RNA sequence: CUUGGGGUGGUUGGGGGGGGCCCUCAGCCCAGAUUGUGAGAGGGUGCAGGCCAGGCCAAGAGACCCCACCAGUGCAGG
Numbered sequence: 001c002u003u004g005g006g007g008u009g010g011u012u013g014g015g016g017g018g019g020g021c022c023c024u025c026a027g028c029c030c031a032g033a034u035u036g037u038g039a040g041a042g043g044g045u046g047c048a049g050g051c052c053a054g055g056c057c058a059a060g061a062g063a064c065c066c067c068a069c070c071a072g073u074g075c076a077g078g
Stems, first nucleotide, its partner, number of pairs: 003076002006073001008071003016067004021062001023060002027056003032051001034049005
The record is a 78-nucleotide RNA from Myotis myotis, which matches "mir-9193 microRNA precursor family" in Rfam. The base pairs follow the family's consensus structure, which was predicted with RNAalifold. The match comes from Rfam's covariance-model search (61 bits). Rfam 15.1 lists 6,008 matches to the family in 8 species. The source organism's lineage runs through Eukaryota, Vertebrata, Gnathostomata, Chiroptera and Myotis.